[Rfam]
RNA: FMN riboswitch aptamer (RFN element)
Organism: Pseudodesulfovibrio piezophilus
RNA sequence: ACUUGUUCUCAGGGCGGGGUGGAAGUCCCCACCGGCGGUAAUCUGGUUUGCCAGAAAGCCCGCGAGCGCUCCUUCGGGUGAAGGAGGUCAGCAGACCCGGUGUAACUCCGGGGCCGACGGUAACAGUCCGGAUGAAAGAGAAUAUGA
Numbered sequence: 001a002c003u004u005g006u007u008c009u010c011a012g013g014g015c016g017g018g019g020u021g022g023a024a025g026u027c028c029c030c031a032c033c034g035g036c037g038g039u040a041a042u043c044u045g046g047u048u049u050g051c052c053a054g055a056a057a058g059c060c061c062g063c064g065a066g067c068g069c070u071c072c073u074u075c076g077g078g079u080g081a082a083g084g085a086g087g088u089c090a091g092c093a094g095a096c097c098c099g100g101u102g103u104a105a106c107u108c109c110g111g112g113g114c115c116g117a118c119g120g121u122a123a124c125a126g127u128c129c130g131g132a133u134g135a136a137a138g139a140g141a142a143u144a145u146g147a
Stems, first nucleotide, its partner, number of pairs: 004144007017029003031127002033116002035063004058114002066092002096112005118130003